This 128-nucleotide sequence from Shewanella oneidensis belongs to the Rfam family "Bacterial antisense RNA HPnc0260". NCBI's taxonomy places the organism under Bacteria, Pseudomonadota, Alteromonadales, Shewanellaceae, Shewanella oneidensis. The literature on the family includes a 2010 paper in Nature by Sharma et al., "The primary transcriptome of the major human pathogen Helicobacter pylori".
RNA sequence: AAAAUUUUAUCUUAGGCACAAAUGUAAAUUUAGAGUCUUAAGAGGAAGUUAUAUUAAACUGUUAUUUUAUAGGGAGUUAAAGUAAGAAAUGGUACACCCGAGUGGACUCGAACCACCGACCCCUACCA
Numbered sequence: 001a002a003a004a005u006u007u008u009a010u011c012u013u014a015g016g017c018a019c020a021a022a023u024g025u026a027a028a029u030u031u032a033g034a035g036u037c038u039u040a041a042g043a044g045g046a047a048g049u050u051a052u053a054u055u056a057a058a059c060u061g062u063u064a065u066u067u068u069a070u071a072g073g074g075a076g077u078u079a080a081a082g083u084a085a086g087a088a089a090u091g092g093u094a095c096a097c098c099c100g101a102g103u104g105g106a107c108u109c110g111a112a113c114c115a116c117c118g119a120c121c122c123c124u125a126c127c128a
Stems, first nucleotide, its partner, number of pairs: 006028003012022002015019001048062002090125003099118002102116004